[Rfam]
RNA: Actino-pnp RNA
Organism: Skermania sp. ID1734
RNA sequence: GUCGGUCUUCGGUAGUGGCUACUCGGGACGCCGCGAGCUGUCACCGGGGAGCUUCGAUCGAUGACCGCC
Numbered sequence: 001g002u003c004g005g006u007c008u009u010c011g012g013u014a015g016u017g018g019c020u021a022c023u024c025g026g027g028a029c030g031c032c033g034c035g036a037g038c039u040g041u042c043a044c045c046g047g048g049g050a051g052c053u054u055c056g057a058u059c060g061a062u063g064a065c066c067g068c069c
Base pairs, nucleotide, nucleotide: 001069003067004066005065006064007063009061010060011059012058013057017053018052019051020050022048023047024046025045026044027042028041029040